RNA: Lysine riboswitch aptamer
Organism: Virgibacillus salarius
RNA sequence: CGGUGAGGUAGAGGUGCAAUGGAUAUGAUUAAUCAGUCGGAGGAUGACAACGAUGAUGAUUGAUGAAAGGAUGUAUUGCCGAAGCAUAAUAAGUGUCUUCCUUAUUAUUGCUGGUGUGCUUUUGAAUAAGAAGUAUACUGUCAUGCAAGAAGCAAUGUGCAUGGAGAACUACUGAUCGA
Numbered sequence: 001c002g003g004u005g006a007g008g009u010a011g012a013g014g015u016g017c018a019a020u021g022g023a024u025a026u027g028a029u030u031a032a033u034c035a036g037u038c039g040g041a042g043g044a045u046g047a048c049a050a051c052g053a054u055g056a057u058g059a060u061u062g063a064u065g066a067a068a069g070g071a072u073g074u075a076u077u078g079c080c081g082a083a084g085c086a087u088a089a090u091a092a093g094u095g096u097c098u099u100c101c102u103u104a105u106u107a108u109u110g111c112u113g114g115u116g117u118g119c120u121u122u123u124g125a126a127u128a129a130g131a132a133g134u135a136u137a138c139u140g141u142c143a144u145g146c147a148a149g150a151a152g153c154a155a156u157g158u159g160c161a162u163g164g165a166g167a168a169c170u171a172c173u174g175a176u177c178g179a
Stems, first nucleotide, its partner, number of pairs: 007173005016079006023072002032064008083112003086108008113139011141164007